[Rfam]
RNA: mir-5890 microRNA precursor family
Organism: Haemonchus placei
RNA sequence: UUUAUGCGGCAGCAUAGGACUGAAUCGUGGGAGGGCCUUUAUGAUUCUACCCCUUUCCGUUUUUAUGCUGCUUUGGAG
Numbered sequence: 001u002u003u004a005u006g007c008g009g010c011a012g013c014a015u016a017g018g019a020c021u022g023a024a025u026c027g028u029g030g031g032a033g034g035g036c037c038u039u040u041a042u043g044a045u046u047c048u049a050c051c052c053c054u055u056u057c058c059g060u061u062u063u064u065a066u067g068c069u070g071c072u073u074u075g076g077a078g
Base pairs, nucleotide, nucleotide: 008072009071010070011069012068013067014066015065016064017063018062019061021059022058024056027053029052030051031050032048033047034046035045036043